A member of the RNA family "mir-34 microRNA precursor family" from Drymodes brunneopygia, 71 nucleotides long. Rfam describes the family as follows. Human mir-34a was discovered computationally and later experimentally verified. The mature sequence is excised from the 5' arm of the hairpin.
[Rfam]
RNA sequence: GGUUUGCAGGCAGUGUCGUUAGCUGAUUGUUCCCACAGCCCCACAAUCACUAAUUCCACUGCCAUCAAAAC
Numbered sequence: 001g002g003u004u005u006g007c008a009g010g011c012a013g014u015g016u017c018g019u020u021a022g023c024u025g026a027u028u029g030u031u032c033c034c035a036c037a038g039c040c041c042c043a044c045a046a047u048c049a050c051u052a053a054u055u056c057c058a059c060u061g062c063c064a065u066c067a068a069a070a071c
Base pairs, nucleotide, nucleotide: 003069004068005067006066009063010062012060013059014058015057018054019053020052021051022050024049025048026047027046028045029044030043